RNA sequence: AAUAGGUUUGCGCGGGACAAUGCUUAGGUUGCUCUUAGAGCGGCAGCCCCAAGUGGGUGGGUUCCUAAGCCCCGGAGCCUUUAUUUGU
Numbered sequence: 001a002a003u004a005g006g007u008u009u010g011c012g013c014g015g016g017a018c019a020a021u022g023c024u025u026a027g028g029u030u031g032c033u034c035u036u037a038g039a040g041c042g043g044c045a046g047c048c049c050c051a052a053g054u055g056g057g058u059g060g061g062u063u064c065c066u067a068a069g070c071c072c073c074g075g076a077g078c079c080u081u082u083a084u085u086u087g088u
Base pairs, nucleotide, nucleotide: 002082004080005079006078007077011075013074014073015072016071022070023069024068025067026066027065028044029043030042031041032040033039034038047057048056049055
Dot-bracket structure: .(.((((...(.((((.....(((((((((((((...)))))))..(((.....))).......))))))))))).)))).)......